Shown here is a 117-nucleotide sequence from Dasypus novemcinctus, a member of the family "Small nucleolar RNA SNORD89".
NCBI's taxonomy places the organism under Eukaryota, Metazoa, Euteleostomi, Eutheria, Dasypus.
Rfam 15.1 lists 642 matches to the family in 573 species.
RNA sequence: ACUGAGGAAUGAUGACAAUAAAAGGCCGAAUUGCAGUGCCUCCAAAUUGCAGUUUGCUCUCUAUAUGGAUGCACGAUGACAAAAUCUCCUGAAGCGAACCACUGGUCUGACCUCAGU
Numbered sequence: 001a002c003u004g005a006g007g008a009a010u011g012a013u014g015a016c017a018a019u020a021a022a023a024g025g026c027c028g029a030a031u032u033g034c035a036g037u038g039c040c041u042c043c044a045a046a047u048u049g050c051a052g053u054u055u056g057c058u059c060u061c062u063a064u065a066u067g068g069a070u071g072c073a074c075g076a077u078g079a080c081a082a083a084a085u086c087u088c089c090u091g092a093a094g095c096g097a098a099c100c101a102c103u104g105g106u107c108u109g110a111c112c113u114c115a116g117u
Stems, first nucleotide, its partner, number of pairs: 001117007014107003025034002035103004041097002043094001047091001049089001052074002055071002058068002075088002078085001
Overview: The base pairs follow the family's consensus structure, which was predicted with RNAalifold. On this family, see Huttenhofer et al., EMBO J 2001: "RNomics: an experimental approach that identifies 201 candidates for novel, small, non-messenger RNAs in mouse". Rfam's curators write: snoRNA HBII-289 belongs to the family of C/D snoRNAs. It is the human orthologue of the mouse MBII-289 and has no identified RNA target.